[Rfam]
RNA sequence: GUGGAAUGAUGUGACUUAGCCAAAUCAGAUAUUGAUGUGCUCCAUUUAAUGUUGAAGCGCAUUUCUCUGUUGAUUCAAUUUGAGAUUGGUUUUCUUUUUUCCUGACCACA
Numbered sequence: 001g002u003g004g005a006a007u008g009a010u011g012u013g014a015c016u017u018a019g020c021c022a023a024a025u026c027a028g029a030u031a032u033u034g035a036u037g038u039g040c041u042c043c044a045u046u047u048a049a050u051g052u053u054g055a056a057g058c059g060c061a062u063u064u065c066u067c068u069g070u071u072g073a074u075u076c077a078a079u080u081u082g083a084g085a086u087u088g089g090u091u092u093u094c095u096u097u098u099u100u101c102c103u104g105a106c107c108a109c110a
Base pairs, nucleotide, nucleotide: 001109002108003107004106